[Rfam]
RNA sequence: ACUCAACAUUAAUUUAGUUUAAAAAGGGUGAGUUUAAGUUGUAAAAGCAGGCCUUACUUGUAUAAGGAUUCUUGAUCAGCUUGGUAGCCCUAAACCUGUUUACUGGAGUUU
Number, nucleotide and partner (000 for none) at each position: 001a000002c000003u000004c000005a000006a000007c000008a000009u000010u000011a000012a000013u000014u000015u000016a000017g000018u000019u000020u000021a000022a000023a000024a000025a091026g090027g089028g088029u087030g000031a000032g000033u000034u000035u000036a082037a081038g080039u079040u078041g000042u000043a000044a000045a073046a072047g071048c000049a000050g000051g000052c067053c066054u065055u064056a000057c000058u000059u000060g000061u000062a000063u000064a055065a054066g053067g052068a000069u000070u000071c047072u046073u045074g000075a000076u000077c000078a040079g039080c038081u037082u036083g000084g000085u000086a000087g029088c028089c027090c026091u025092a000093a000094a000095c000096c000097u000098g000099u000100u000101u000102a000103c000104u000105g000106g000107a000108g000109u000110u000111u000
The record is a 111-nucleotide RNA sequence from Flavobacteriaceae bacterium EG-1, which matches "6S-Flavo RNA" in Rfam. The family's RNA type in Rfam is small RNA.